[Rfam]
RNA sequence: CCUUGGUCCGAGGGGUGUUCCGGUUACCGGAGCUGAGAUGGCGUAAUGCCGAACCCUUAGAACCUGAUCCGGGUCAUGCCGGCGAAGGGACGGAAUCCUUAGCCUAU
Numbered sequence: 001c002c003u004u005g006g007u008c009c010g011a012g013g014g015g016u017g018u019u020c021c022g023g024u025u026a027c028c029g030g031a032g033c034u035g036a037g038a039u040g041g042c043g044u045a046a047u048g049c050c051g052a053a054c055c056c057u058u059a060g061a062a063c064c065u066g067a068u069c070c071g072g073g074u075c076a077u078g079c080c081g082g083c084g085a086a087g088g089g090a091c092g093g094a095a096u097c098c099u100u101a102g103c104c105u106a107u
Stems, first nucleotide, its partner, number of pairs: 007094004011057004016051001017033005040050004063088003069082004
This 107-nucleotide RNA sequence from Roseibium aggregatum belongs to the Rfam family "TPP riboswitch aptamer (THI element)". The family's consensus secondary structure is taken from published work. Rfam describes the family as follows. Vitamin B(1) in its active form thiamin pyrophosphate (TPP) is an essential coenzyme that is synthesised by coupling of pyrimidine and thiazole moieties in bacteria.